[Rfam]
RNA: Histone 3' UTR stem-loop
RNA sequence: ACAAAGGCUCUUUUCAGAGCCACCCAUGUCAUCAGGAGAAGAGCCU
Number, nucleotide and partner (000 for none) at each position: 001a000002c000003a000004a000005a000006g021007g020008c019009u018010c017011u016012u000013u000014u000015c000016a011017g010018a009019g008020c007021c006022a000023c000024c000025c000026a000027u000028g000029u000030c000031a000032u000033c000034a000035g000036g000037a000038g000039a000040a000041g000042a000043g000044c000045c000046u000